Rfam assigns this 76-nucleotide RNA sequence to the family "pemK RNA".
[Rfam]
RNA sequence: AUAAUGAUACUUCUGCCGAGUCCCAGACAUCGCAAGGACGGCAGCCCGCAUGACGGGGGAGGUGAAAAGCCUAUGU
Numbered sequence: 001a002u003a004a005u006g007a008u009a010c011u012u013c014u015g016c017c018g019a020g021u022c023c024c025a026g027a028c029a030u031c032g033c034a035a036g037g038a039c040g041g042c043a044g045c046c047c048g049c050a051u052g053a054c055g056g057g058g059g060a061g062g063u064g065a066a067a068a069g070c071c072u073a074u075g076u
Stems, first nucleotide, its partner, number of pairs: 012073001013044006045059003049055001060072003

Rfam's curators put it in the seed alignment.